[Rfam]
RNA sequence: UGCGUCAGCGAUUAGGCAUGUUGCAGAACCAAAACUGCGAAAGUGACAAAGUACUUCAUAGAAGCACUUAGUUGCGUUAGGUGUGGCGAAAGCCUGCAAAGUACAUAGGGUAAAAAAAUUUGGGUAGAAGCCGAUGGAGACGCAACCUCUAUCGGCUUUCU
Dot-bracket structure: (..((((..............(((((..{{{{{.)))))....))))..)((((((.......((((((([[[[[[[)))))))(((....)))....))))))..............}}}}}...(((((((((((((]]]]]]])))))))))))))..
RNA: FuFi-1 RNA